The family of this 201-nucleotide sequence from Nocardioides mangrovicus is "Actinobacteria sRNA Ms_IGR-5". The source organism's lineage runs through Bacteria, Bacillati, Actinomycetota, Propionibacteriales and Nocardioides. It is annotated as a small RNA. Pairs were carried over by alignment from the consensus structure.
RNA sequence: ACACGGGAAAGGAGGUGGUCCGAUCAAUGCAUGCUUAUCGGAUUCGUGAGGUGGCUGCUCGCUAGCAGCGCACCACGCCAGUAGGCGGCACGCGUCGCGCGCUGGCAAUCCAUCAGCAGUCACCCGACCCGCAGGCGACCGGAUCUCAUCCGCCCGGUUCCAAGGGCCUUCGACGGAGGCCACGCCUGCGGGUCGCUGCAC
Numbered sequence: 001a002c003a004c005g006g007g008a009a010a011g012g013a014g015g016u017g018g019u020c021c022g023a024u025c026a027a028u029g030c031a032u033g034c035u036u037a038u039c040g041g042a043u044u045c046g047u048g049a050g051g052u053g054g055c056u057g058c059u060c061g062c063u064a065g066c067a068g069c070g071c072a073c074c075a076c077g078c079c080a081g082u083a084g085g086c087g088g089c090a091c092g093c094g095u096c097g098c099g100c101g102c103u104g105g106c107a108a109u110c111c112a113u114c115a116g117c118a119g120u121c122a123c124c125c126g127a128c129c130c131g132c133a134g135g136c137g138a139c140c141g142g143a144u145c146u147c148a149u150c151c152g153c154c155c156g157g158u159u160c161c162a163a164g165g166g167c168c169u170u171c172g173a174c175g176g177a178g179g180c181c182a183c184g185c186c187u188g189c190g191g192g193u194c195g196c197u198g199c200a201c
Base pairs, nucleotide, nucleotide: 014059015058016057017056018055019054061106062105063104064103065102066101068100069099070098071097075095076094077093125195126194127193128192129191130190131189132188133187134186135185136184137183139157140156141155142154144152